[Rfam]
RNA sequence: CUACAAUGAUGGUAAUAUUUUUCGUCAACAGAUAUCACCUAGUGAGUGUUGACACUUUGGGUCUGAGAGA
Number, nucleotide and partner (000 for none) at each position: 001c000002u069003a000004c067005a000006a000007u000008g026009a025010u024011g023012g000013u000014a000015a000016u000017a000018u000019u000020u000021u000022u000023c011024g010025u009026c008027a000028a000029c000030a000031g000032a000033u000034a000035u000036c000037a000038c000039c000040u000041a000042g000043u000044g000045a000046g000047u000048g000049u000050u000051g000052a000053c000054a000055c000056u000057u000058u000059g000060g000061g000062u000063c000064u000065g000066a000067g004068a000069g002070a000
Small nucleolar RNA SNORD56: a 70-nucleotide RNA from Microtus ochrogaster. The source organism's lineage runs through Eukaryota, Metazoa, Cricetidae, Arvicolinae and Microtus. By type it is a C/D-box small nucleolar RNA. On this family, see Galardi et al., Mol Cell Biol 2002: "Purified box C/D snoRNPs are able to reproduce site-specific 2'-O-methylation of target RNA in vitro". Its family is annotated with nucleolus and RNA processing in the Gene Ontology. Pairs were carried over by alignment from the consensus structure, which was predicted with PFOLD.